A member of the RNA family "small Cajal body-specific RNA 17" from Loxodonta africana, 143 nucleotides long. Lineage of the source: Eukaryota > Opisthokonta > Eumetazoa > Eutheria > Loxodonta. scaRNAs are a specific class of small nuclear RNAs which localise to the Cajal bodies and guide the modification of RNA polymerase II transcribed spliceosomal RNAs U1, U2, U4, U5 and U12. The complete human U12-22/U4-8 scaRNA is composed of two tandem C/D box domains (termed U12-22 and U4-8).

RNA sequence: UUUCCCGAUCCCCGAUCCAGCCCCUAGAUGUGCCCGCGAUAUUUUCCUUAUAUGAUCAGGCCCCGUUGUGGGCGGCGCUGCUUGCCCGGAGCCUGAGAGGAUUAUGAAAAUACUUCAGGUGACGUGGGGCGGGGAACCGGGUG
Numbered sequence: 001u002u003u004c005c006c007g008a009u010c011c012c013c014g015a016u017c018c019a020g021c022c023c024c025u026a027g028a029u030g031u032g033c034c035c036g037c038g039a040u041a042u043u044u045u046c047c048u049u050a051u052a053u054g055a056u057c058a059g060g061c062c063c064c065g066u067u068g069u070g071g072g073c074g075g076c077g078c079u080g081c082u083u084g085c086c087c088g089g090a091g092c093c094u095g096a097g098a099g100g101a102u103u104a105u106g107a108a109a110a111u112a113c114u115u116c117a118g119g120u121g122a123c124g125u126g127g128g129g130c131g132g133g134g135a136a137c138c139g140g141g142u143g
Stems, first nucleotide, its partner, number of pairs: 001143001003141001005140003009136001011134003020130005056096006063089002068085007